[Rfam]
RNA sequence: ACGCUGACCGCAUGUUCGCUGGCGUUGCCGGCAGCAUGCCCAGGCAGCCACGAUCUUCAAGGCUGCGACGCGGUUCCGACCGCGUUGAUCACACCAGUUCGCACCGGCAUCCAUGCGCGAACGGCCAUCGGUUCUCGAUGGCGAUGC
Numbered sequence: 001a002c003g004c005u006g007a008c009c010g011c012a013u014g015u016u017c018g019c020u021g022g023c024g025u026u027g028c029c030g031g032c033a034g035c036a037u038g039c040c041c042a043g044g045c046a047g048c049c050a051c052g053a054u055c056u057u058c059a060a061g062g063c064u065g066c067g068a069c070g071c072g073g074u075u076c077c078g079a080c081c082g083c084g085u086u087g088a089u090c091a092c093a094c095c096a097g098u099u100c101g102c103a104c105c106g107g108c109a110u111c112c113a114u115g116c117g118c119g120a121a122c123g124g125c126c127a128u129c130g131g132u133u134c135u136c137g138a139u140g141g142c143g144a145u146g147c
Base pairs, nucleotide, nucleotide: 011038012037013036014035015033018032019031020030021029022028023027044066045065046064047063048062049061052090053089054088055087067086068085069084070083071082072081073080117147118146119145124142125141126140127139128138129137130136131135
RNA: radC RNA
Organism: Xanthomonas boreopolis